[Rfam]
Annotation: This 121-nucleotide RNA sequence belongs to the Rfam family "Plastid-psbA-1 3UTR RNA". The base pairs follow the family's consensus structure, which was predicted with LocARNA. Rfam's curators put it in the seed alignment. Plastid psbA-1 is a non-coding RNA (ncRNA) present in plastids. It was identified in inverted repeat sequences in the 3 prime untranslate region (3UTR) of photosystem II quinone-binding protein (psbA).
RNA sequence: GUUGAGGCUCCAUCUACAAAUGGAUAAUUCUUUAGUGUUAGUCUAGACCUAGUUUAGGAAUAGUAAAAAACGCGCAAUAUAAGCCUUCUUAAAAUUAAAAAGAAGGCUUAUAUUGCUCAUU
Numbered sequence: 001g002u003u004g005a006g007g008c009u010c011c012a013u014c015u016a017c018a019a020a021u022g023g024a025u026a027a028u029u030c031u032u033u034a035g036u037g038u039u040a041g042u043c044u045a046g047a048c049c050u051a052g053u054u055u056a057g058g059a060a061u062a063g064u065a066a067a068a069a070a071c072g073c074g075c076a077a078u079a080u081a082a083g084c085c086u087u088c089u090u091a092a093a094a095u096u097a098a099a100a101a102g103a104a105g106g107c108u109u110a111u112a113u114u115g116c117u118c119a120u121u
Stems, first nucleotide, its partner, number of pairs: 009024005069121002072118001074116007082108003086104005